The record is a 119-nucleotide RNA from Sutterella parvirubra, which matches "SAM-I/IV (S-adenosyl methionine) riboswitch aptamer" in Rfam.
NCBI's taxonomy places the organism under Bacteria, Pseudomonadati, Sutterellaceae, Sutterella, Sutterella parvirubra.
On this family, see Trausch et al., PNAS 2014: "Structural basis for diversity in the SAM clan of riboswitches".
The family is grouped with related families in Rfam's "SAM clan".
The match comes from Rfam's covariance-model search (50 bits).
Its family is annotated with S-adenosylmethionine metabolic process and regulation of gene expression in the Gene Ontology.

[Rfam]
RNA sequence: GUGCGACAUUGCGAGGUGGGGUCCUCUCCCCACGCCAACCUGCCUUCCCGGGCAAGGUGGAAAGCUCUUCAUUGAGCGGAUGUGGCCGGCACGCGGUGCCGGCAAAGAAACGGGACACG
Numbered sequence: 001g002u003g004c005g006a007c008a009u010u011g012c013g014a015g016g017u018g019g020g021g022u023c024c025u026c027u028c029c030c031c032a033c034g035c036c037a038a039c040c041u042g043c044c045u046u047c048c049c050g051g052g053c054a055a056g057g058u059g060g061a062a063a064g065c066u067c068u069u070c071a072u073u074g075a076g077c078g079g080a081u082g083u084g085g086c087c088g089g090c091a092c093g094c095g096g097u098g099c100c101g102g103c104a105a106a107g108a109a110a111c112g113g114g115a116c117a118c119g
Base pairs, nucleotide, nucleotide: 006083007082008081009080010079015033017032018031019030020029021028035060036059039057040056041055042053043052044051046115047114048113049112050111085103086102087101088100089099090098091097092096